[Rfam]
RNA: DUF3800-IX RNA
RNA sequence: AAAUCGAUCCCGAAAGAGUUGCCGUAUGGUAGCCGAAGCUCGAAAGAGAUAGGGGUCGAUUCCGCA
Numbered sequence: 001a002a003a004u005c006g007a008u009c010c011c012g013a014a015a016g017a018g019u020u021g022c023c024g025u026a027u028g029g030u031a032g033c034c035g036a037a038g039c040u041c042g043a044a045a046g047a048g049a050u051a052g053g054g055g056u057c058g059a060u061u062c063c064g065c066a
Stems, first nucleotide, its partner, number of pairs: 002061010018033006039048003